[Rfam]
Description: This 205-nucleotide RNA sequence from Paraburkholderia humisilvae belongs to the Rfam family "Burkholderia sRNA Bp1_Cand738_SIPHT". The family's consensus secondary structure was predicted with RNAalifold. Taxonomically the source falls in Paraburkholderia (Bacteria, Pseudomonadati, Betaproteobacteria, Burkholderiaceae). The literature on the family includes a 2012 paper in BMC Genomics by Khoo et al., "Computational discovery and RT-PCR validation of novel Burkholderia conserved and Burkholderia pseudomallei unique sRNAs". It scores 176 bits against the family's covariance model.
RNA sequence: CGAAAAACCAGCGUCGAAUUGCGCUGGUGAAGACAACUAAAACCGUCAAUGCCGUGCAAGGGGCGGCAAAAGCGACGCGUUGCGUCUGAAGGACCGGGGGACGGUGGUAAAAACUAUCAAGCCCUGCAACCAAUGCAGCGGAUUCUAGAGCACCGUUUUAUAGAUCGUCAACACUAUAAAUAUCCAAAGCUAUAACCAAUUGUCA
Numbered sequence: 001c002g003a004a005a006a007a008c009c010a011g012c013g014u015c016g017a018a019u020u021g022c023g024c025u026g027g028u029g030a031a032g033a034c035a036a037c038u039a040a041a042a043c044c045g046u047c048a049a050u051g052c053c054g055u056g057c058a059a060g061g062g063g064c065g066g067c068a069a070a071a072g073c074g075a076c077g078c079g080u081u082g083c084g085u086c087u088g089a090a091g092g093a094c095c096g097g098g099g100g101a102c103g104g105u106g107g108u109a110a111a112a113a114c115u116a117u118c119a120a121g122c123c124c125u126g127c128a129a130c131c132a133a134u135g136c137a138g139c140g141g142a143u144u145c146u147a148g149a150g151c152a153c154c155g156u157u158u159u160a161u162a163g164a165u166c167g168u169c170a171a172c173a174c175u176a177u178a179a180a181u182a183u184c185c186a187a188a189g190c191u192a193u194a195a196c197c198a199a200u201u202g203u204c205a
Stems, first nucleotide, its partner, number of pairs: 008027007043107005050068005074086005134173002138168004144164004